This 114-nucleotide sequence from Ketobacter alkanivorans belongs to the Rfam family "t44 RNA". The organism belongs to Ketobacter, within Bacteria. A reference for the family is Tjaden et al. (2002), "Transcriptome analysis of Escherichia coli using high-density oligonucleotide probe arrays", Nucleic Acids Res.
RNA sequence: UCAAAUAAAACCGUAAUCCACACAUGCACCGUCACGUGAGUCAGGGUGCCUUUGUUCCAAGGCCUUGGUUGCCAAUGUUCAAAGGUUGAUUCAUGGGGUUCAUGGAGGCUUAAC
Numbered sequence: 001u002c003a004a005a006u007a008a009a010a011c012c013g014u015a016a017u018c019c020a021c022a023c024a025u026g027c028a029c030c031g032u033c034a035c036g037u038g039a040g041u042c043a044g045g046g047u048g049c050c051u052u053u054g055u056u057c058c059a060a061g062g063c064c065u066u067g068g069u070u071g072c073c074a075a076u077g078u079u080c081a082a083a084g085g086u087u088g089a090u091u092c093a094u095g096g097g098g099u100u101c102a103u104g105g106a107g108g109c110u111u112a113a114c
Stems, first nucleotide, its partner, number of pairs: 023104004028099003035095009048086007